[Rfam]
RNA sequence: GUACAUUCGCUCCCACGGCAGGAAGUGCCGAAAGUUACGCCUUUGGCAGACAGAUGUGUGAGACCUGCAAGCGAAUGCGUUGGAGCUCAAACUCUGUAAAAUCCC
Numbered sequence: 001g002u003a004c005a006u007u008c009g010c011u012c013c014c015a016c017g018g019c020a021g022g023a024a025g026u027g028c029c030g031a032a033a034g035u036u037a038c039g040c041c042u043u044u045g046g047c048a049g050a051c052a053g054a055u056g057u058g059u060g061a062g063a064c065c066u067g068c069a070a071g072c073g074a075a076u077g078c079g080u081u082g083g084a085g086c087u088c089a090a091a092c093u094c095u096g097u098a099a100a101a102u103c104c105c
Stems, first nucleotide, its partner, number of pairs: 016030005034064003038060003044056002047053001082095004
Dot-bracket structure: ...............(((((.....)))))...(((.(((...((.(.....).)).))).))).................((((......))))..........

The record is a 105-nucleotide RNA from Helicobacter suis, which matches "Heliobacter pylori small RNA HPnc0580" in Rfam. A search with the family's covariance model found it, with a score of 92 bits.